Description:
This 164-nucleotide RNA from Bacillus cereus belongs to the Rfam family "M-box riboswitch aptamer (ykoK leader)". It is one of the family's seed sequences.
RNA sequence: AUAAGUCUCUGUUAGGUGAGGCUCCUGUAUAGAGAAAUGCUACUGCCCAAAAAUGUCGAGAGACGCCAAUGGGUCAACAGGAAUGAUCGAAUUAAGGUUUUUCUUAACGUAGCUGGUAAUGAACCUAUGCUAUACAGUGCUAAAACUCGACGAGGGAGAGGUCU
Numbered sequence: 001a002u003a004a005g006u007c008u009c010u011g012u013u014a015g016g017u018g019a020g021g022c023u024c025c026u027g028u029a030u031a032g033a034g035a036a037a038u039g040c041u042a043c044u045g046c047c048c049a050a051a052a053a054u055g056u057c058g059a060g061a062g063a064c065g066c067c068a069a070u071g072g073g074u075c076a077a078c079a080g081g082a083a084u085g086a087u088c089g090a091a092u093u094a095a096g097g098u099u100u101u102u103c104u105u106a107a108c109g110u111a112g113c114u115g116g117u118a119a120u121g122a123a124c125c126u127a128u129g130c131u132a133u134a135c136a137g138u139g140c141u142a143a144a145a146c147u148c149g150a151c152g153a154g155g156g157a158g159a160g161g162u163c164u
Stems, first nucleotide, its partner, number of pairs: 006159005011151002013095001015147003020141003025137008039113005045074005054065004080104004086098003115125003